[Rfam]
RNA sequence: AAAGCAGGCGAGGUGAUCGCGAUCGGGUGAGGCAGGCCUGCGGGCCGCGCCCCAGCCCGGUUGAGGAAAGUCCGGGCUCCCCAAUGGCCAGGCUUGCUGGGUAACGCCCAGUGCGGGUGACCGUGAGGAGAGUGCCACAGAAACACACCGCCGAUGGCUCCGCUUCCGCUGCGGUGGAGACGAGCACAGGCAAGGGUGCAAAGGUGCGGUAAGAGCGCACCAGCAGCAUCGAGAGGUGCUGGCUCGGUAAACCCCGGCCGGGAGCAAGGCCCAGGGACCAACGGUUGGCCAUGACACCGGUCCCGCCCCAAGUGCGCCGCUCGAGGCCGCCGGAGACGGCGGUCCCAGACAGAUGAUCACCCCGGGCAGGGUCCGCCCCACCCGGAACAGAACCCGGCUUACGUCCUGCUUUCCCC
Numbered sequence: 001a002a003a004g005c006a007g008g009c010g011a012g013g014u015g016a017u018c019g020c021g022a023u024c025g026g027g028u029g030a031g032g033c034a035g036g037c038c039u040g041c042g043g044g045c046c047g048c049g050c051c052c053c054a055g056c057c058c059g060g061u062u063g064a065g066g067a068a069a070g071u072c073c074g075g076g077c078u079c080c081c082c083a084a085u086g087g088c089c090a091g092g093c094u095u096g097c098u099g100g101g102u103a104a105c106g107c108c109c110a111g112u113g114c115g116g117g118u119g120a121c122c123g124u125g126a127g128g129a130g131a132g133u134g135c136c137a138c139a140g141a142a143a144c145a146c147a148c149c150g151c152c153g154a155u156g157g158c159u160c161c162g163c164u165u166c167c168g169c170u171g172c173g174g175u176g177g178a179g180a181c182g183a184g185c186a187c188a189g190g191c192a193a194g195g196g197u198g199c200a201a202a203g204g205u206g207c208g209g210u211a212a213g214a215g216c217g218c219a220c221c222a223g224c225a226g227c228a229u230c231g232a233g234a235g236g237u238g239c240u241g242g243c244u245c246g247g248u249a250a251a252c253c254c255c256g257g258c259c260g261g262g263a264g265c266a267a268g269g270c271c272c273a274g275g276g277a278c279c280a281a282c283g284g285u286u287g288g289c290c291a292u293g294a295c296a297c298c299g300g301u302c303c304c305g306c307c308c309c310a311a312g313u314g315c316g317c318c319g320c321u322c323g324a325g326g327c328c329g330c331c332g333g334a335g336a337c338g339g340c341g342g343u344c345c346c347a348g349a350c351a352g353a354u355g356a357u358c359a360c361c362c363c364g365g366g367c368a369g370g371g372u373c374c375g376c377c378c379c380a381c382c383c384g385g386a387a388c389a390g391a392a393c394c395c396g397g398c399u400u401a402c403g404u405c406c407u408g409c410u411u412u413c414c415c416c
Stems, first nucleotide, its partner, number of pairs: 001412008010402001012361007020063009068400003072397005077264004087295001089293001091259003095256002097111005112126001113124004127254002132252002134248003148195002150191003155186002203221006223243001224241007268318003274309003278305001287302004325344008
The record is a 416-nucleotide RNA sequence from Cyanobium sp. PCC 7001, which matches "Bacterial RNase P class A" in Rfam.
Pairs were carried over by alignment from the consensus structure, which is taken from published work.
The family's RNA type in Rfam is ribozyme.
Lineage of the source: Bacteria > Bacillati > Cyanobacteriota > Cyanophyceae > Cyanobium.
About the family: Ribonuclease P (RNase P) is a ubiquitous endoribonuclease, found in archaea, bacteria and eukarya as well as chloroplasts and mitochondria. Its best characterised activity is the generation of mature 5'-ends of tRNAs by cleaving the 5'-leader elements of precursor-tRNAs.